[Rfam]
RNA sequence: GGCGGGUCACCGCCUAAUCGUGCACACGAACCGGGGACCCAUGUACCUGGGGUGAAGCCGCAGCACCACCGCGGCCGGGCGCGCUUCCCGUCCGAACCCGACAGCUGACCCGGUCGGCGGCCGAGGGAAGAAAG
Numbered sequence: 001g002g003c004g005g006g007u008c009a010c011c012g013c014c015u016a017a018u019c020g021u022g023c024a025c026a027c028g029a030a031c032c033g034g035g036g037a038c039c040c041a042u043g044u045a046c047c048u049g050g051g052g053u054g055a056a057g058c059c060g061c062a063g064c065a066c067c068a069c070c071g072c073g074g075c076c077g078g079g080c081g082c083g084c085u086u087c088c089c090g091u092c093c094g095a096a097c098c099c100g101a102c103a104g105c106u107g108a109c110c111c112g113g114u115c116g117g118c119g120g121c122c123g124a125g126g127g128a129a130g131a132a133a134g
Base pairs, nucleotide, nucleotide: 011119012118013117014116018029019028020027030114031113032112033111034110035109040049041048050099051098052097058074059073060072061071077093078092079091080090
The record is a 134-nucleotide sequence from Pseudosporangium ferrugineum, which matches "c-di-AMP riboswitch aptamer (ydaO/yuaA leader)" in Rfam. Pairs were carried over by alignment from the consensus structure. Gene Ontology terms of the family: regulation of gene expression and cyclic-di-AMP binding. A search with the family's covariance model found it, with a score of 82 bits. The organism belongs to Pseudosporangium, within Bacteria.